[Rfam]
RNA sequence: GUAUCGGUCACCGCAAGGUUUCCGGUGGCAACACCGGACAGACUUCCGCGGUUCGACUGACGAACCGCACCCGGCUAUGCCGGCUUUUGUUAAACCCGCCGGGAUUACACCGGC
Numbered sequence: 001g002u003a004u005c006g007g008u009c010a011c012c013g014c015a016a017g018g019u020u021u022c023c024g025g026u027g028g029c030a031a032c033a034c035c036g037g038a039c040a041g042a043c044u045u046c047c048g049c050g051g052u053u054c055g056a057c058u059g060a061c062g063a064a065c066c067g068c069a070c071c072c073g074g075c076u077a078u079g080c081c082g083g084c085u086u087u088u089g090u091u092a093a094a095c096c097c098g099c100c101g102g103g104a105u106u107a108c109a110c111c112g113g114c
Stems, first nucleotide, its partner, number of pairs: 010019003021038006048068008071083004098114005